Annotation
A member of the RNA family "Small nucleolar RNA U3" from Cricetulus griseus, 207 nucleotides long. By type it is a C/D-box small nucleolar RNA. Lineage of the source: Eukaryota > Gnathostomata > Amniota > Euarchontoglires > Cricetulus. Its Rfam clan is "U3 clan". Rfam describes the family as follows. Small nucleolar RNAs (snoRNAs) are involved in the processing and modification of rRNA in the nucleolus. There are two main classes of snoRNAs: the box C/D class, and the box H/ACA class. The family has 87 seed sequences and 19,072 matches in Rfam 15.1.
RNA sequence: AACACCCAGCUCAGGGAUCAUUUCUAUAGUUUGUUACUAGAGAAAUUUCUCUGACUGUGUAGAGCACCCGAAACCACGAGGACGAGACGUAGUGUUCCCUCCUGAGAGUGAAGCCGGCUCUAGGUGCUGCUUUUCUGUGGCUGUCUCUUGCCAUUGAUGAUCACUCUUCUCUUCCUUAUGGAAGGGUGAGAGGGAGGGUCAACAUAG
Numbered sequence: 001a002a003c004a005c006c007c008a009g010c011u012c013a014g015g016g017a018u019c020a021u022u023u024c025u026a027u028a029g030u031u032u033g034u035u036a037c038u039a040g041a042g043a044a045a046u047u048u049c050u051c052u053g054a055c056u057g058u059g060u061a062g063a064g065c066a067c068c069c070g071a072a073a074c075c076a077c078g079a080g081g082a083c084g085a086g087a088c089g090u091a092g093u094g095u096u097c098c099c100u101c102c103u104g105a106g107a108g109u110g111a112a113g114c115c116g117g118c119u120c121u122a123g124g125u126g127c128u129g130c131u132u133u134u135c136u137g138u139g140g141c142u143g144u145c146u147c148u149u150g151c152c153a154u155u156g157a158u159g160a161u162c163a164c165u166c167u168u169c170u171c172u173u174c175c176u177u178a179u180g181g182a183a184g185g186g187u188g189a190g191a192g193g194g195a196g197g198g199u200c201a202a203c204a205u206a207g
Base pairs, nucleotide, nucleotide: 002038006033008031009030010029011028013025014024015023016022047063048062052059092205093204094203095202096201097198098197099196100195101194102193103192106164108162116152117151118150122146123145124144125143126141127140128139129138130137167189168188169186170185171184172183173182174181175180